[Rfam]
RNA: Small nucleolar RNA SNORD16
RNA sequence: UGCCGUGAUGUCGUAAUUUGCGUCUUACCCUGUGCUCGGGGGCAGUUGCCUGCUGUCAGAGUACCGGCACGGGCGGUUGACGAACAGUUGGUGCUGAGCA
Numbered sequence: 001u002g003c004c005g006u007g008a009u010g011u012c013g014u015a016a017u018u019u020g021c022g023u024c025u026u027a028c029c030c031u032g033u034g035c036u037c038g039g040g041g042g043c044a045g046u047u048g049c050c051u052g053c054u055g056u057c058a059g060a061g062u063a064c065c066g067g068c069a070c071g072g073g074c075g076g077u078u079g080a081c082g083a084a085c086a087g088u089u090g091g092u093g094c095u096g097a098g099c100a
Base pairs, nucleotide, nucleotide: 001100002099003098021082022081023080024079030072031071032070033069034068039064041057042056043055044054045053